Overview: This 81-nucleotide RNA sequence from Hermetia illucens belongs to the Rfam family "mir-315 microRNA precursor family". The match comes from Rfam's covariance-model search (84 bits). NCBI's taxonomy places the organism under Eukaryota, Pterygota, Stratiomyomorpha, Stratiomyidae, Hermetia.
RNA sequence: UCCAUAUAUAAUUUUGAUUGUUGCUCAGAAAGCCUUGUAUCCGAUAUUGGCUUUCGAGUAAUAAUUAAAACCAGAUAUGGU
Numbered sequence: 001u002c003c004a005u006a007u008a009u010a011a012u013u014u015u016g017a018u019u020g021u022u023g024c025u026c027a028g029a030a031a032g033c034c035u036u037g038u039a040u041c042c043g044a045u046a047u048u049g050g051c052u053u054u055c056g057a058g059u060a061a062u063a064a065u066u067a068a069a070a071c072c073a074g075a076u077a078u079g080g081u
Base pairs, nucleotide, nucleotide: 002080003079004078005077006076007075012070013069014068015067016066017065018064020062021061022060023059024058025057026056028055029054030053031052032051033050034049